[Rfam]
A member of the RNA family "mir-9229 microRNA precursor family" from Cnephaeus nilssonii, 75 nucleotides long.
RNA sequence: GACCACCCUUAUGGGGCAGGGCUUGCUUCAGUAGGGCUUUGGUGCUCACUGAGUCUGGCCCUUGAGUGUGUUGCU
Numbered sequence: 001g002a003c004c005a006c007c008c009u010u011a012u013g014g015g016g017c018a019g020g021g022c023u024u025g026c027u028u029c030a031g032u033a034g035g036g037c038u039u040u041g042g043u044g045c046u047c048a049c050u051g052a053g054u055c056u057g058g059c060c061c062u063u064g065a066g067u068g069u070g071u072u073g074c075u
Stems, first nucleotide, its partner, number of pairs: 002072001004070003008066004013061003017057002020055003028052005034046002036043002
The match comes from Rfam's covariance-model search (75 bits). The base pairs follow the family's consensus structure, which was predicted with RNAalifold. The source organism's lineage runs through Eukaryota, Sarcopterygii, Dipnotetrapodomorpha, Amniota and Cnephaeus.